[Rfam]
RNA sequence: UGGGCAGGCCAGACAAUCGCGUGCACAGCAUGAGGAAAGUCCGGGCUCCGCAGGGCAGGGAUGCCGUGAUAACGUCCGGCGUAGGUAACUAUAGGGAAAGUGCAACAGAAACACACCGCCGAAACGGGUCAUGCCGUGGUAAGGUUGAAAUGGUGAGGUAAGAGCUCACCGGCGUCAUGGAGACAUGGCGGCCGUGUAAACCCCAUCCGGAGCAAGGUCGGAGGGCAGUAUGGUGGCGGCCCGUCACCGCCCGAAAGGUGGACCGCAUGAGCGCGCAGAGAUGCAGCGCCUUAGAUAGAUGAUUGUCGAAUACAGAACCCGGCUUACAGACCUGCCCAUUUU
Numbered sequence: 001u002g003g004g005c006a007g008g009c010c011a012g013a014c015a016a017u018c019g020c021g022u023g024c025a026c027a028g029c030a031u032g033a034g035g036a037a038a039g040u041c042c043g044g045g046c047u048c049c050g051c052a053g054g055g056c057a058g059g060g061a062u063g064c065c066g067u068g069a070u071a072a073c074g075u076c077c078g079g080c081g082u083a084g085g086u087a088a089c090u091a092u093a094g095g096g097a098a099a100g101u102g103c104a105a106c107a108g109a110a111a112c113a114c115a116c117c118g119c120c121g122a123a124a125c126g127g128g129u130c131a132u133g134c135c136g137u138g139g140u141a142a143g144g145u146u147g148a149a150a151u152g153g154u155g156a157g158g159u160a161a162g163a164g165c166u167c168a169c170c171g172g173c174g175u176c177a178u179g180g181a182g183a184c185a186u187g188g189c190g191g192c193c194g195u196g197u198a199a200a201c202c203c204c205a206u207c208c209g210g211a212g213c214a215a216g217g218u219c220g221g222a223g224g225g226c227a228g229u230a231u232g233g234u235g236g237c238g239g240c241c242c243g244u245c246a247c248c249g250c251c252c253g254a255a256a257g258g259u260g261g262a263c264c265g266c267a268u269g270a271g272c273g274c275g276c277a278g279a280g281a282u283g284c285a286g287c288g289c290c291u292u293a294g295a296u297a298g299a300u301g302a303u304u305g306u307c308g309a310a311u312a313c314a315g316a317a318c319c320c321g322g323c324u325u326a327c328a329g330a331c332c333u334g335c336c337c338a339u340u341u342u
Base pairs, nucleotide, nucleotide: 001338002337003336004335005334006333007332008331010329012307013306014305015304016303017302018301020032021031022030023029024028037325038324039323041322042321043320044319045318046212047211048210049209053242054241055240056239059208060207061206062205063204064079065078066077068076069075080094081092082091083090084089095203096202100201101200102197103196104195116144117143118140119139120138124137125136126135127134152170153169154168155167156166157165172192173190174189175188176187177186178185179184216264217263218262219261226253228251233247234246235245236244237243271289272288273287274286275284276283277282
Dot-bracket structure: ((((((((.(.(((((((.(((((...)))))....[[[.[[[[[((((...[[[[..((((((((.((.....)))))(((((....)))).)((...(((((...........(((((...((((......)))))))..)).......((((((.......)))))).((((((((....))))))).)..)))..)))))))))))))...((((......(.(....(((((.]]]])))))...).).......))))......(((((((....))).))))...........)))))))..........]]]]]]]]...).))))))))....

Rfam assigns this 342-nucleotide sequence from Hornefia porci to the family "Bacterial RNase P class A". About the family: Ribonuclease P (RNase P) is a ubiquitous endoribonuclease, found in archaea, bacteria and eukarya as well as chloroplasts and mitochondria. Pairs were carried over by alignment from the consensus structure, which is taken from published work.